[Rfam]
RNA sequence: CCUUUGGAGCGUCACACCAAACGCAAGUAGAUUCGUCAAAAGCGGACGCGUUGAAUUAGGAA
Numbered sequence: 001c002c003u004u005u006g007g008a009g010c011g012u013c014a015c016a017c018c019a020a021a022c023g024c025a026a027g028u029a030g031a032u033u034c035g036u037c038a039a040a041a042g043c044g045g046a047c048g049c050g051u052u053g054a055a056u057u058a059g060g061a062a
Base pairs, nucleotide, nucleotide: 001060002059003058009049010048011047012046013045022044023043024042030037031036
This 62-nucleotide sequence belongs to the Rfam family "RAGATH-18 RNA". Actinobacteria, Firmicutes, Fusobacteria, Thermotogae (1 example). It is annotated as a small RNA. Rfam's curators put it in the seed alignment. The base pairs follow the family's consensus structure, which is taken from published work.